[Rfam]
RNA: SAM riboswitch aptamer (S box leader)
RNA sequence: UUCUUAUCAAGAGAGGUGGAGGGACUGGCCCUGUGAAACCCAGCAACCUAUGGUAUAAGUAUUUUUUAUGUCAUAACGGUGCUAAAUCCUGCAGGUUUACUGAUAGAUAAGUA
Numbered sequence: 001u002u003c004u005u006a007u008c009a010a011g012a013g014a015g016g017u018g019g020a021g022g023g024a025c026u027g028g029c030c031c032u033g034u035g036a037a038a039c040c041c042a043g044c045a046a047c048c049u050a051u052g053g054u055a056u057a058a059g060u061a062u063u064u065u066u067u068a069u070g071u072c073a074u075a076a077c078g079g080u081g082c083u084a085a086a087u088c089c090u091g092c093a094g095g096u097u098u099a100c101u102g103a104u105a106g107a108u109a110a111g112u113a
Base pairs, nucleotide, nucleotide: 001113003111004110005109006108007107008106013041015040016039017038021031022030023029025091027089028088042083043082044081045080047079048078049075050074051073052072053071054070055069056068057067058066087105092102093101094100